[Rfam]
Shown here is a 95-nucleotide sequence from Rhizobium sp. LC145, a member of the family "chrB-a RNA". By type it is a cis-regulatory element.
RNA sequence: GGUAUGGGGUCUGCGAGUACCCCACGAGGCGCCAUGCCGAAAUUCGCGUCCUUCAUAUGGCUAUAACAUAUGUUUCCUAGAGGACACGGAUCAUG
Number, nucleotide and partner (000 for none) at each position: 001g000002g000003u000004a000005u024006g023007g022008g021009g020010u019011c000012u000013g000014c000015g000016a000017g000018u000019a010020c009021c008022c007023c006024a005025c000026g000027a000028g000029g000030c000031g000032c000033c000034a000035u000036g000037c000038c000039g000040a000041a000042a000043u000044u000045c000046g087047c000048g085049u084050c083051c082052u081053u080054c000055a000056u000057a000058u000059g000060g000061c000062u000063a000064u000065a000066a000067c000068a000069u000070a000071u000072g000073u000074u000075u000076c000077c000078u000079a000080g053081a052082g051083g050084a049085c048086a000087c046088g000089g000090a000091u000092c000093a000094u000095g000